[Rfam]
RNA: ZMP/ZTP riboswitch aptamer (pfl RNA motif)
Organism: Miniimonas arenae
Nucleotides: 088
Stems, first nucleotide, its partner, number of pairs: 005051001008048005015041002017076004025037004065083005
Number, partner (000 for none) and nucleotide at each position: 001000u002000g003000a004000c005051c006000g007000g008048g009047u010046c011045g012044c013000g014000a015041c016040u017076g018075g019074c020073g021000c022000c023000g024000g025037g026036u027035g028034g029000a030000g031000c032000c033000a034028c035027c036026a037025c038000c039000g040016g041015g042000g043000a044012g045011c046010g047009a048008u049000g050000a051005g052000a053000g054000a055000g056000c057000a058000c059000g060000c061000c062000g063000a064000g065083g066082g067081g068080u069079c070000g071000c072000c073020c074019g075018c076017c077000u078000g079069g080068g081067u082066c083065c084000c085000g086000a087000u088000g